[Rfam]
RNA sequence: UUUUUUAGGGAAAAUUUGGCCUUUCCACAAGGGGAGGCCCGGGAAUUUUAUU
Numbered sequence: 001u002u003u004u005u006u007a008g009g010g011a012a013a014a015u016u017u018g019g020c021c022u023u024u025c026c027a028c029a030a031g032g033g034g035a036g037g038c039c040c041g042g043g044a045a046u047u048u049u050a051u052u
Base pairs, nucleotide, nucleotide: 008052009051011049012048013047014046015042016041018039019038020037021036022035023034024033025032
Overview: A member of the RNA family "HIV Ribosomal frameshift signal" from Lentivirus humimdef1, 52 nucleotides long. On this family, see Biswas et al., J Virol 2004: "The human immunodeficiency virus type 1 ribosomal frameshifting site is an invariant sequence determinant and an important target for antiviral therapy". Rfam's curators write: This family represents the HIV Ribosomal frameshift signal. Gene Ontology term of the family: viral translational frameshifting. Rfam's curators put it in the seed alignment.